[Rfam]
RNA sequence: CGGGCAGUAUCUUUAAUGAACUGCACUUGUCUAAUACUCAGCCGCUGGCUCAAUUGAAUAAGCGAAAAUUCUGCCUUGAUCCGUAAAGGACAGGGACAGAGGG
Numbered sequence: 001c002g003g004g005c006a007g008u009a010u011c012u013u014u015a016a017u018g019a020a021c022u023g024c025a026c027u028u029g030u031c032u033a034a035u036a037c038u039c040a041g042c043c044g045c046u047g048g049c050u051c052a053a054u055u056g057a058a059u060a061a062g063c064g065a066a067a068a069u070u071c072u073g074c075c076u077u078g079a080u081c082c083g084u085a086a087a088g089g090a091c092a093g094g095g096a097c098a099g100a101g102g103g
Stems, first nucleotide, its partner, number of pairs: 002027002004024005010019002071099003074095005080090003
Shown here is a 103-nucleotide RNA from Bacillus aerolatus, a member of the family "pan motif". Pairs were carried over by alignment from the consensus structure, which is taken from published work. The match comes from Rfam's covariance-model search (59 bits). The organism belongs to Bacillus, within Bacteria.